[Rfam]
RNA sequence: CCAGUACCAAAGCUACGAGGCUCAUUCCACACAGGACGCUUCGUUCGUCCCUCUUCAUGAGCGGGCUAAGGUCUGAGUAUUCUAUUCCCCCAUGAUCGGCUCUAGCUGGGCCCAGUCAUAAUUGGCAUGAGGCAGCGUACCAGAAACACGGUCUUCCCUAUCGUCCUGUUUCAGGACGCCCAAAGAUCCUUCAGAGGGGAGGGAUAUAGAUGGAAGAACCUUGAAAUAUGCGCCGGGGAUUGGGUGUUCGACGUCGCCAUGGGCUCGUCGAAUGUCCUUUAGUGCACUUCGUAGCCCGCAAUCUGGUUUUCUAGUUGCGGAACUCGAUUCAGACUACUCUGGGACUGG
Dot-bracket structure: ((((..(((..(((((((.(((((.........(((((.......))))).......)))))..........[[[[[..........((((......(((((.....)))))..((((....))))....(((.(((............(((.................................................................)))........))))))))))..................................................)))))))(((((((...........))))))).......]]]]].......)))..))))